[Rfam]
RNA sequence: ACUGGCGAGGAUGACAUAUACUUGCCCUCACUUAGACCACAGUUCGUUGAUGAGAGCACCUAAUUGUUCUGAGCCAGU
Numbered sequence: 001a002c003u004g005g006c007g008a009g010g011a012u013g014a015c016a017u018a019u020a021c022u023u024g025c026c027c028u029c030a031c032u033u034a035g036a037c038c039a040c041a042g043u044u045c046g047u048u049g050a051u052g053a054g055a056g057c058a059c060c061u062a063a064u065u066g067u068u069c070u071g072a073g074c075c076a077g078u
Stems, first nucleotide, its partner, number of pairs: 001078006